[Rfam]
RNA sequence: CAUCAACGCUAAAUUAGUGUUUGGCUUGAUGCGUAUUUUAUCGCUCUACUUUACUUAUAUAGUUUAAAAUAGAGUCAACACACUAAGGAUUUUAUAAUGUCUUUAAAUGCUACAGAAAAAGCUGCAAUCGUUGCAGAAUAUGCUCAAUCAGAA
Number, nucleotide and partner (000 for none) at each position: 001c000002a000003u000004c000005a000006a000007c000008g025009c024010u023011a022012a021013a000014u000015u000016a000017g000018u000019g000020u000021u012022u011023g010024g009025c008026u000027u000028g000029a000030u000031g000032c000033g000034u000035a000036u000037u000038u000039u000040a000041u000042c000043g000044c000045u000046c000047u000048a000049c000050u107051u106052u105053a000054c000055u000056u000057a000058u000059a000060u000061a000062g000063u000064u000065u000066a000067a000068a000069a000070u000071a000072g000073a000074g000075u000076c000077a000078a000079c000080a000081c000082a000083c000084u000085a000086a103087g102088g101089a000090u000091u000092u000093u000094a000095u000096a000097a000098u000099g000100u000101c088102u087103u086104u000105a052106a051107a050108u000109g000110c000111u000112a000113c000114a000115g000116a000117a000118a000119a000120a000121g000122c000123u000124g000125c000126a000127a000128u000129c000130g000131u000132u000133g000134c000135a000136g000137a000138a000139u000140a000141u000142g000143c000144u000145c000146a000147a000148u000149c000150a000151g000152a000153a000

The family of this 153-nucleotide RNA sequence from Colwellia ponticola is "Ribosomal S15 leader". Pairs were carried over by alignment from the consensus structure, which is taken from published work. It scores 55 bits against the family's covariance model. About the family: The E. coli Ribosomal S15 gene 5' UTR can form two alternative structures. One that is a series of three hairpins, The other includes a pseudoknot. This structure causes translational regulation of the S15 protein. The alignment of this family contains only the final two hairpins which are conserved in other species, and also includes the complete region that forms the alternate structures. The family's RNA type in Rfam is cis-regulatory leader. The organism belongs to Colwellia, within Bacteria.